[Rfam]
RNA sequence: AAUUUAGUUCCAAGGGUCACAUUAGAACUGUCCAUGUUGUGGCCCUGUUAGAUUCUGACGAAUCUGUGAAUUCUUCU
Numbered sequence: 001a002a003u004u005u006a007g008u009u010c011c012a013a014g015g016g017u018c019a020c021a022u023u024a025g026a027a028c029u030g031u032c033c034a035u036g037u038u039g040u041g042g043c044c045c046u047g048u049u050a051g052a053u054u055c056u057g058a059c060g061a062a063u064c065u066g067u068g069a070a071u072u073c074u075u076c077u
Stems, first nucleotide, its partner, number of pairs: 014045005021077001024074004029039002049066007

Mammalian CPEB3 ribozyme: a 77-nucleotide sequence from Microcaecilia unicolor. From the family's description: The mammalian CPEB3 ribozyme is a self cleaving RNA located in the second intron of the CPEB3 gene which belongs to a family of genes regulating messenger RNA polyadenylation. The match comes from Rfam's covariance-model search (47 bits). Lineage of the source: Eukaryota > Metazoa > Bilateria > Dipnotetrapodomorpha > Microcaecilia.